[Rfam]
This 100-nucleotide RNA from Zeimonas arvi belongs to the Rfam family "Glycine riboswitch aptamer".
RNA sequence: ACAACCGCUGUGGAAGAGAUCGCGCAGGCCCUGCAGGCCCGCGCGGCGCCGAAGGUGUAUCGCCCCGGAAACUCUCAGGCAAAAGGACUUCAGCGGUUCG
Numbered sequence: 001a002c003a004a005c006c007g008c009u010g011u012g013g014a015a016g017a018g019a020u021c022g023c024g025c026a027g028g029c030c031c032u033g034c035a036g037g038c039c040c041g042c043g044c045g046g047c048g049c050c051g052a053a054g055g056u057g058u059a060u061c062g063c064c065c066c067g068g069a070a071a072c073u074c075u076c077a078g079g080c081a082a083a084a085g086g087a088c089u090u091c092a093g094c095g096g097u098u099c100g
Base pairs, nucleotide, nucleotide: 006095007094008093009092010091012089013088020046021045022044023043024042025041048080049079050078051076052075055074057072061067062066

Taxonomically the source falls in Zeimonas (Bacteria, Betaproteobacteria, Burkholderiales, Burkholderiaceae).